[Rfam]
RNA sequence: GGAUCGAUGAUGACUCCCGCAAAUACAUUCCUUGGAAGCUGAACAAAAUGAGUGAAAACCCCAUACCGUCGUUCUCAUCGUGACUGAGGUCC
Numbered sequence: 001g002g003a004u005c006g007a008u009g010a011u012g013a014c015u016c017c018c019g020c021a022a023a024u025a026c027a028u029u030c031c032u033u034g035g036a037a038g039c040u041g042a043a044c045a046a047a048a049u050g051a052g053u054g055a056a057a058a059c060c061c062c063a064u065a066c067c068g069u070c071g072u073u074c075u076c077a078u079c080g081u082g083a084c085u086g087a088g089g090u091c092c
Stems, first nucleotide, its partner, number of pairs: 001092005026054005032046003
Small nucleolar RNA SNORD116: a 92-nucleotide RNA from Ochotona princeps. Rfam's curators put it in the seed alignment. Taxonomically the source falls in Ochotona (Eukaryota, Eumetazoa, Sarcopterygii, Tetrapoda). Gene Ontology terms of the family: nucleolus and RNA processing. The family's consensus secondary structure was predicted with PFOLD. For this family Rfam cites "Identification of brain-specific and imprinted small nucleolar RNA genes exhibiting an unusual genomic organization" (Cavaille et al., Proc Natl Acad Sci U S A, 2000). Rfam classes the family as a C/D-box small nucleolar RNA.